[Rfam]
RNA sequence: UCCUGAUGCACUGUUUGAGUAUCCUGAAAACGGGCUUUUCAAGAUCAGUGUAUCAAUUAAUUUUAAUAAUAGGAGUGCAUAGUGGCCCGUAUUGCAGGCAUUAACAUUCCUGAU
Number, nucleotide and partner (000 for none) at each position: 001u000002c000003c000004u055005g054006a053007u052008g051009c050010a049011c048012u047013g046014u000015u000016u000017g000018a000019g000020u000021a000022u000023c098024c097025u096026g000027a000028a000029a000030a000031c089032g088033g087034g086035c000036u000037u000038u000039u113040c112041a111042a000043g000044a000045u000046c013047a012048g011049u010050g009051u008052a007053u006054c005055a004056a000057u000058u000059a000060a000061u000062u000063u000064u000065a000066a000067u000068a000069a000070u000071a000072g000073g000074a000075g000076u000077g000078c000079a000080u000081a000082g000083u000084g000085g000086c034087c033088c032089g031090u000091a000092u000093u000094g000095c000096a025097g024098g023099c000100a000101u000102u000103a000104a000105c000106a000107u000108u000109c000110c000111u041112g040113a039114u000
Alpha operon ribosome binding site: a 114-nucleotide RNA sequence from Cricetibacter osteomyelitidis. Gene Ontology term of the family: ribosome binding. Rfam classes the family as a cis-regulatory element. Pairs were carried over by alignment from the consensus structure, which is taken from published work. The source organism's lineage runs through Bacteria, Pseudomonadati, Gammaproteobacteria, Pasteurellaceae and Cricetibacter. The bacterial alpha operon ribosome binding site is surrounded by this complex pseudoknotted structure. Translation of the mRNA produces 4 ribosomal protein products, one of which (S4) acts as a translational repressor by binding to the nested pseudoknot region.